[Rfam]
RNA: MIR394 microRNA precursor family
Organism: Tripterygium wilfordii
RNA sequence: CUUGCAGAGUUUAUUGGCAUUCUGUCCACCUCCCCAUGAUCCAUGCUAUUGGCUUGUAAUACUAGAAACGAUGUCGUUUUGGCUAUAAUAAUAGGAAGGAGGAGGAAGAGGAGGUGGGCAUUACUGCCAACUGAGCUCUGUUGG
Numbered sequence: 001c002u003u004g005c006a007g008a009g010u011u012u013a014u015u016g017g018c019a020u021u022c023u024g025u026c027c028a029c030c031u032c033c034c035c036a037u038g039a040u041c042c043a044u045g046c047u048a049u050u051g052g053c054u055u056g057u058a059a060u061a062c063u064a065g066a067a068a069c070g071a072u073g074u075c076g077u078u079u080u081g082g083c084u085a086u087a088a089u090a091a092u093a094g095g096a097a098g099g100a101g102g103a104g105g106a107a108g109a110g111g112a113g114g115u116g117g118g119c120a121u122u123a124c125u126g127c128c129a130a131c132u133g134a135g136c137u138c139u140g141u142u143g144g
Stems, first nucleotide, its partner, number of pairs: 011134001014130006023120011